[Rfam]
RNA: Manganese Mn2+ riboswitch aptamer (yybP-ykoY)
RNA sequence: GGGAGUAGUCGGCUUCCGGCCCCACCGGAAGAACCUGCGUCAACAUAAUCGGCCCGCAGGCCGUGGCGCAGGUGGCUGCGGCACGCACACAGUGCGAUGCCGCGCAGCUU
Numbered sequence: 001g002g003g004a005g006u007a008g009u010c011g012g013c014u015u016c017c018g019g020c021c022c023c024a025c026c027g028g029a030a031g032a033a034c035c036u037g038c039g040u041c042a043a044c045a046u047a048a049u050c051g052g053c054c055c056g057c058a059g060g061c062c063g064u065g066g067c068g069c070a071g072g073u074g075g076c077u078g079c080g081g082c083a084c085g086c087a088c089a090c091a092g093u094g095c096g097a098u099g100c101c102g103c104g105c106a107g108c109u110u
Base pairs, nucleotide, nucleotide: 013031014030015029016028017027033073034072035071036070037069038068039067040066041065042064050063051062052061053060054059074109075108076107077106078105079104080103